[Rfam]
RNA sequence: AGAACUUUAUCGCUGAGUUAUAGUUUACCAUAACUAUAAGCGGAGGAACCAUUCAUUGGGGUGAAUCCUGAUAAUUCAGGUAGGGUUAGUCUCUUACAACCCGAAUCCGGCAGCUAACUUCGUAAGCGUUGGGGAGAAAGUGA
Numbered sequence: 001a002g003a004a005c006u007u008u009a010u011c012g013c014u015g016a017g018u019u020a021u022a023g024u025u026u027a028c029c030a031u032a033a034c035u036a037u038a039a040g041c042g043g044a045g046g047a048a049c050c051a052u053u054c055a056u057u058g059g060g061g062u063g064a065a066u067c068c069u070g071a072u073a074a075u076u077c078a079g080g081u082a083g084g085g086u087u088a089g090u091c092u093c094u095u096a097c098a099a100c101c102c103g104a105a106u107c108c109g110g111c112a113g114c115u116a117a118c119u120u121c122g123u124a125a126g127c128g129u130u131g132g133g134g135a136g137a138a139a140g141u142g143a
Stems, first nucleotide, its partner, number of pairs: 011128004018039008040123006050058002059108003067080004083102004
The family of this 143-nucleotide RNA from Ruminiclostridium sufflavum is "c-di-AMP riboswitch aptamer (ydaO/yuaA leader)". This family represents a conserved RNA structure found upstream of the ydaO and yuaA genes in Bacillus subtilis and related genes in other bacteria. Taxonomically the source falls in Ruminiclostridium sufflavum (Bacteria, Clostridia, Oscillospiraceae, Ruminiclostridium). It scores 102 bits against the family's covariance model.